[Rfam]
This 129-nucleotide RNA from Saimiri boliviensis belongs to the Rfam family "Small nucleolar RNA SNORA11". A search with the family's covariance model found it, with a score of 142 bits. NCBI's taxonomy places the organism under Eukaryota, Deuterostomia, Simiiformes, Saimiriinae, Saimiri boliviensis. The family has 35 seed sequences and 2,014 matches in Rfam 15.1. U107 (SNORA11) is a member of the H/ACA class of snoRNAs that guide the sites of modification of uridines to pseudouridines. A reference for the family is Gu et al. (2005), "A novel experimental approach for systematic identification of box H/ACA snoRNAs from eukaryotes", Nucleic Acids Res.
RNA sequence: GAGGUGUGCUCAGAGCAGGGGGCCUGAAGAAUGGCUCCUCUGUUUAUAACACACCCAACAGGAAUCUGGAGUCAUUGUGAUGAGAAGCAUGAAGCUUGUGGCUUCCCUACAAACAAAUGCUCUACAUGU
Numbered sequence: 001g002a003g004g005u006g007u008g009c010u011c012a013g014a015g016c017a018g019g020g021g022g023c024c025u026g027a028a029g030a031a032u033g034g035c036u037c038c039u040c041u042g043u044u045u046a047u048a049a050c051a052c053a054c055c056c057a058a059c060a061g062g063a064a065u066c067u068g069g070a071g072u073c074a075u076u077g078u079g080a081u082g083a084g085a086a087g088c089a090u091g092a093a094g095c096u097u098g099u100g101g102c103u104u105c106c107c108u109a110c111a112a113a114c115a116a117a118u119g120c121u122c123u124a125c126a127u128g129u
Base pairs, nucleotide, nucleotide: 003055004054005053006052007051008050013045014044015043016042017041018040019039020038021037022035023034024033069122070121071120072119076115077114078113081111082110084104085103088100089099090098091097092096